This 235-nucleotide RNA sequence from Litchfieldella anticariensis belongs to the Rfam family "PhrS". Taxonomically the source falls in Litchfieldella anticariensis (Bacteria, Pseudomonadati, Pseudomonadota, Gammaproteobacteria). On this family, see Livny et al., Nucleic Acids Res 2006: "Identification of 17 Pseudomonas aeruginosa sRNAs and prediction of sRNA-encoding genes in 10 diverse pathogens using the bioinformatic tool sRNAPredict2". Pairs were carried over by alignment from the consensus structure, which was predicted with CMfinder.
RNA sequence: CUAGAGUGAAGCCAUCACAUCACGGCGGGAGAUUAAAGCCAUGUACUGGGAUGACGCGGUAAUCUUCGGACUGGUAACCGUCGGUAUGAUGAUCGCUUUCAUGGGUGGCUGGGUGGCUUUCAUCGUGCGCGACCAUAAGCGCAAGAACAAGCAUCGCCAUUGAGCCAGCCUCAUCGAGUCGUCAGGGGAGGGGGCACUGCCCCCGCUAGCCGGCCUUCGGGCCGGCAUUUUUAUU
Dot-bracket structure: ..........(((..........................................(.(.....).)................(((......))).........))).......................................................................(........................).....(((((((....))))))).........